[Rfam]
Nucleotides: 145
Stems, first nucleotide, its partner, number of pairs: 002144010013133004018128004023123002026120001028118006
Number, partner (000 for none) and nucleotide at each position: 001000u002144g003143u004142u005141a006140a007139a008138a009137a010136u011135u012000u013133c014132a015131u016130u017000u018128a019127u020126u021125u022000c023123u024122a025000c026120u027000a028118u029117u030116a031115a032114a033113a034000a035000u036000u037000g038000g039000u040000g041000u042000g043000a044000c045000u046000a047000a048000c049000a050000a051000a052000a053000u054000a055000a056000c057000u058000a059000a060000a061000u062000a063000g064000u065000g066000a067000c068000a069000c070000a071000u072000g073000g074000c075000a076000u077000g078000u079000c080000a081000u082000g083000u084000g085000u086000a087000c088000c089000u090000c091000a092000u093000g094000u095000u096000a097000a098000u099000u100000u101000a102000u103000a104000u105000g106000g107000a108000c109000a110000a111000g112000u113033u114032u115031u116030u117029a118028a119000c120026a121000a122024u123023a124000a125021a126020a127019a128018u129000g130016g131015a132014u133013g134000c135011a136010a137009u138008u139007u140006u141005u142004a143003a144002u145000a

Overview:
MIR7502 microRNA precursor family: a 145-nucleotide sequence from Gossypium harknessii. Rfam links the family to the GO terms miRNA-mediated post-transcriptional gene silencing and RISC complex. Lineage of the source: Eukaryota > Streptophytina > Spermatophyta > malvids > Gossypium. The base pairs follow the family's consensus structure, which was predicted with RNAalifold.